[Rfam]
Nucleotides: 114
Base pairs, nucleotide, nucleotide: 001114002113004111005110008107009106011104013102014101015100018097021095022094037077038076040074049063050062051061
Number, partner (000 for none) and nucleotide at each position: 001114g002113u003000g004111g005110g006000u007000u008107a009106u010000g011104g012000g013102g014101a015100u016000a017000u018097g019000g020000u021095g022094c023000c024000u025000a026000a027000g028000a029000c030000u031000u032000a033000u034000a035000u036000u037077g038076g039000a040074a041000u042000g043000u044000u045000c046000g047000u048000g049063g050062g051061u052000g053000c054000u055000u056000u057000a058000u059000g060000u061051g062050c063049u064000u065000u066000a067000g068000c069000g070000g071000g072000u073000g074040u075000a076038c077037u078000g079000a080000c081000g082000a083000u084000a085000g086000c087000c088000u089000u090000a091000c092000c093000c094022g095021u096000g097018c098000c099000a100015g101014u102013c103000a104011u105000a106009g107008u108000c109000u110005c111004c112000a113002a114001u
A member of the RNA family "Potassium channel RNA editing signal" from Diabrotica virgifera, 114 nucleotides long. A search with the family's covariance model found it, with a score of 90 bits. The base pairs follow the family's consensus structure, which is taken from published work. Taxonomically the source falls in Diabrotica virgifera (Eukaryota, Mandibulata, Pancrustacea, Coleoptera).